Shown here is a 75-nucleotide sequence from Thalictrum thalictroides, a member of the family "MIR397 microRNA precursor family".

RNA sequence: AUUGAAAACAUCAUUGAGUGCAGCGUUGAUGAAUCGUUGGUGAAUUCACCAGCGCUACACUCAAUUAUGUUUUCA
Numbered sequence: 001a002u003u004g005a006a007a008a009c010a011u012c013a014u015u016g017a018g019u020g021c022a023g024c025g026u027u028g029a030u031g032a033a034u035c036g037u038u039g040g041u042g043a044a045u046u047c048a049c050c051a052g053c054g055c056u057a058c059a060c061u062c063a064a065u066u067a068u069g070u071u072u073u074c075a
Stems, first nucleotide, its partner, number of pairs: 006072006013065008022056007030048005
Background: Taxonomically the source falls in Thalictrum (Eukaryota, Embryophyta, Magnoliopsida, Ranunculaceae).